[Rfam]
RNA sequence: GGCCGAAAAGGCAAACUGUCGGUGACGGCAGGACGCAAAGCUUCCGGUCUCGGUUUGGAGAUAGCGGAGUUACCGAAG
Numbered sequence: 001g002g003c004c005g006a007a008a009a010g011g012c013a014a015a016c017u018g019u020c021g022g023u024g025a026c027g028g029c030a031g032g033a034c035g036c037a038a039a040g041c042u043u044c045c046g047g048u049c050u051c052g053g054u055u056u057g058g059a060g061a062u063a064g065c066g067g068a069g070u071u072a073c074c075g076a077a078g
Stems, first nucleotide, its partner, number of pairs: 003075001011036002016031006034064001039071004044067003047062003